A member of the RNA family "Small nucleolar RNA SNORD11B" from Gallus gallus, 84 nucleotides long. For this family Rfam cites "snoSeeker: an advanced computational package for screening of guide and orphan snoRNA genes in the human genome" (Yang et al., Nucleic Acids Res, 2006).

RNA sequence: UGAUGGCAGUGAUGAUUCCUAUAUUGUGGUUUUCCUGAUGUACAAAUGUGAGGGUGCACAGUCACUACCUCAUCUGAGCCAUCU
Numbered sequence: 001u002g003a004u005g006g007c008a009g010u011g012a013u014g015a016u017u018c019c020u021a022u023a024u025u026g027u028g029g030u031u032u033u034c035c036u037g038a039u040g041u042a043c044a045a046a047u048g049u050g051a052g053g054g055u056g057c058a059c060a061g062u063c064a065c066u067a068c069c070u071c072a073u074c075u076g077a078g079c080c081a082u083c084u
Stems, first nucleotide, its partner, number of pairs: 002083006